[Rfam]
Nucleotides: 291
Stems, first nucleotide, its partner, number of pairs: 001263004007257003010253001011238006018190008027179004034056003038052005063131001065129001067127002076091003100123004202221001239252004269291010
Number, partner (000 for none) and nucleotide at each position: 001263u002262a003261c004260a005000u006000a007257a008256a009255g010253u011238u012237u013236g014235c015234u016233c017000a018190c019189u020188c021187a022186a023185g024184g025183g026000a027179g028178u029177c030176u031000u032000g033000c034056u035055c036054a037000u038052c039051c040050c041049c042048u043000a044000u045000g046000a047000a048042a049041g050040g051039g052038g053000g054036u055035g056034g057000g058000a059000a060000a061000a062000u063131g064000a065129c066000u067127g068126u069000u070000u071000a072000c073000g074000a075000a076091u077090c078089a079000u080000u081000a082000a083000u084000g085000a086000u087000a088000a089078u090077g091076a092000u093000c094000a095000a096000u097000u098000u099000u100123g101122g102121c103120g104000g105000a106000u107000u108000g109000a110000u111000a112000u113000u114000a115000a116000a117000u118000a119000c120103c121102g122101u123100c124000u125000u126068g127067u128000u129065g130000a131063u132000c133000u134000u135000c136000a137000a138000u139000a140000u141000a142000a143000u144000g145000a146000u147000g148000a149000u150000u151000g152000u153000a154000a155000c156000g157000u158000c159000a160000a161000g162000c163000c164000a165000a166000a167000a168000g169000a170000a171000a172000a173000a174000a175000u176030a177029g178028a179027c180000c181000u182000c183025c184024c185023c186022u187021u188020g189019a190018g191000a192000u193000u194000g195000c196000g197000a198000c199000c200000c201000u202221a203000a204000a205000g206000g207000g208000u209000u210000g211000g212000u213000c214000u215000a216000c217000u218000a219000u220000g221202u222000c223000a224000c225000a226000u227000a228000c229000a230000u231000c232000u233016g234015a235014g236013c237012a238011a239252g240251c241250c242249c243000u244000u245000u246000g247000a248000u249242g250241g251240g252239c253010a254000g255009c256008u257007u258000u259000u260004u261003g262002u263001a264000c265000a266000g267000a268000g269291c270290u271289g272288g273287g274286g275285u276284g277283u278282u279000g280000g281000u282278a283277g284276c285275a286274c287273c288272c289271u290270g291269g
Rfam assigns this 291-nucleotide sequence to the family "BsrG". Its family is annotated with toxin activity and autolysis in the Gene Ontology. The family's RNA type in Rfam is small RNA. Rfam's curators write: bsrE, bsrG and bsrH pair through intermolecular interactions with antisense sRNAs. They form type I toxin/antitoxin system that includes an mRNA encoding for a short, toxic peptide (bsrE, bsrG and bsrH) and an antitoxin that is comprised of an antisense RNA. bsrG encodes a 39-amino-acid toxin, and the 180 nucleotide antisense sRNA called SR4 acts as the antitoxin (they overlap by 123 nucleotides). SR4 interaction with the 3'UTR of bsrG RNA promotes bsrG degradation and inhibits its translation. BsrG interferes with cell envelope biosynthesis, causes membrane invaginations and delocalisation of the cell wall synthesis and initiates autolysis. bsrE RNA encodes 30 amino-acid toxin peptide. A search with the family's covariance model found it, with a score of 185 bits.